[Rfam]
RNA sequence: CAAAAACCGAUGAGGAAGAGAAGUAAGUUUUAAAAGAAUUUGCAGAGAGCAGCAGGUGGUGGGAUUGCUGUAAGGAUUUUAAUUCCGAAUGGACUUUCGAGGGUGGCCUGAAAUGAAAAGAGUAGGAGUCGCCGGGAACCGAACCCGUUAUCAAUCAGGAGCGUAUGUUAGUACGUGAGAAAGUGGACGCAGGUCAAUUUGAGUGGUACCGCGAUAGUAAAGAAAUUUAUUACCGUCUCAAGC
Numbered sequence: 001c002a003a004a005a006a007c008c009g010a011u012g013a014g015g016a017a018g019a020g021a022a023g024u025a026a027g028u029u030u031u032a033a034a035a036g037a038a039u040u041u042g043c044a045g046a047g048a049g050c051a052g053c054a055g056g057u058g059g060u061g062g063g064a065u066u067g068c069u070g071u072a073a074g075g076a077u078u079u080u081a082a083u084u085c086c087g088a089a090u091g092g093a094c095u096u097u098c099g100a101g102g103g104u105g106g107c108c109u110g111a112a113a114u115g116a117a118a119a120g121a122g123u124a125g126g127a128g129u130c131g132c133c134g135g136g137a138a139c140c141g142a143a144c145c146c147g148u149u150a151u152c153a154a155u156c157a158g159g160a161g162c163g164u165a166u167g168u169u170a171g172u173a174c175g176u177g178a179g180a181a182a183g184u185g186g187a188c189g190c191a192g193g194u195c196a197a198u199u200u201g202a203g204u205g206g207u208a209c210c211g212c213g214a215u216a217g218u219a220a221a222g223a224a225a226u227u228u229a230u231u232a233c234c235g236u237c238u239c240a241a242g243c
Stems, first nucleotide, its partner, number of pairs: 007102002015097004027085001030082002039073002049071006104131004108126002133147003186195003200240004211236003215232007

The family of this 243-nucleotide sequence from [Ruminococcus] lactaris is "T-box leader". Taxonomically the source falls in [Ruminococcus] lactaris (Bacteria, Bacillota, Lachnospirales, Lachnospiraceae). The literature on the family includes a 1994 paper in J Bacteriol by Grundy et al., "Interaction between the acceptor end of tRNA and the T box stimulates antitermination in the Bacillus subtilis tyrS gene: a new role for the discriminator base".